Record summary: The family of this 165-nucleotide sequence from Syntrophothermus lipocalidus is "Group II catalytic intron D1-D4-3". The match comes from Rfam's covariance-model search (68 bits).

Nucleotides: 165
Stems, first nucleotide, its partner, number of pairs: 001016006028165001030163001035158002041151004046147001047143005064137001072134003076130001080129004085113001087111002091106004
Number, partner (000 for none) and nucleotide at each position: 001016c002015c003014c004013g005012c006011g007000a008000a009000g010000a011006c012005g013004c014003g015002g016001g017000a018000u019000c020000c021000a022000a023000a024000g025000g026000a027000a028165g029000c030163c031000a032000g033000c034000a035158g036157c037000g038000a039000a040000c041151c042150u043149u044148c045000c046147g047143g048142c049141c050140c051139g052000a053000c054000g055000a056000a057000c058000a059000g060000g061000a062000a063000c064137c065000g066000c067000a068000c069000c070000a071000g072134g073133c074132u075000g076130g077000g078000g079000a080129u081128a082127g083126u084000u085113g086000c087111a088110u089000g090000a091106g092105c093104u094103u095000a096000c097000u098000a099000a100000g101000c102000a103094a104093a105092g106091c107000g108000a109000a110088a111087u112000c113085c114000g115000u116000u117000c118000u119000g120000c121000c122000g123000c124000a125000g126083g127082c128081u129080a130076u131000a132074a133073g134072c135000a136000c137064g138000u139051c140050g141049g142048g143047u144000a145000g146000a147046u148044g149043g150042a151041g152000u153000g154000a155000g156000a157036g158035c159000c160000a161000g162000c163030g164000u165028u